[Rfam]
RNA sequence: UAGCAAGGCUUGCGCUCAAGCUCUCGGUACGUCGGACGGUGCCCCGGCGUCAGACAUAUCCUGCGGAUAUGGCAUCGUUACGGAACUGCGCACACUGAGCAGAUCCACACGGCGCAGGCU
Numbered sequence: 001u002a003g004c005a006a007g008g009c010u011u012g013c014g015c016u017c018a019a020g021c022u023c024u025c026g027g028u029a030c031g032u033c034g035g036a037c038g039g040u041g042c043c044c045c046g047g048c049g050u051c052a053g054a055c056a057u058a059u060c061c062u063g064c065g066g067a068u069a070u071g072g073c074a075u076c077g078u079u080a081c082g083g084a085a086c087u088g089c090g091c092a093c094a095c096u097g098a099g100c101a102g103a104u105c106c107a108c109a110c111g112g113c114g115c116a117g118g119c120u
Stems, first nucleotide, its partner, number of pairs: 007120010025077004029050007055071007082106003086102004
Overview:
Rfam assigns this 120-nucleotide sequence to the family "DUF3268 RNA". By type it is a small RNA. Rfam's curators put it in the seed alignment.